Rfam assigns this 133-nucleotide RNA sequence from Octodon degus to the family "Small nucleolar RNA SNORA1".
Rfam 15.1 lists 1,282 matches to the family in 515 species.
The family's consensus secondary structure was predicted with PFOLD.
The source organism's lineage runs through Eukaryota, Opisthokonta, Boreoeutheria, Glires and Octodon.

RNA sequence: AGCCUCAUUCUGGAUUAGACUGAGCACUGUUGAUUCAUGUCCAGAAUUGGUCAGUGGGGCUAAAAUUGCAAUAUAGGUCAUGCUUCCAUCACAGUAAAUAUUUACAGUGGUGACAAGGAGGCCUGUAACAUUU
Numbered sequence: 001a002g003c004c005u006c007a008u009u010c011u012g013g014a015u016u017a018g019a020c021u022g023a024g025c026a027c028u029g030u031u032g033a034u035u036c037a038u039g040u041c042c043a044g045a046a047u048u049g050g051u052c053a054g055u056g057g058g059g060c061u062a063a064a065a066u067u068g069c070a071a072u073a074u075a076g077g078u079c080a081u082g083c084u085u086c087c088a089u090c091a092c093a094g095u096a097a098a099u100a101u102u103u104a105c106a107g108u109g110g111u112g113a114c115a116a117g118g119a120g121g122c123c124u125g126u127a128a129c130a131u132u133u
Stems, first nucleotide, its partner, number of pairs: 002060003006056003021043002024040003073126005087112006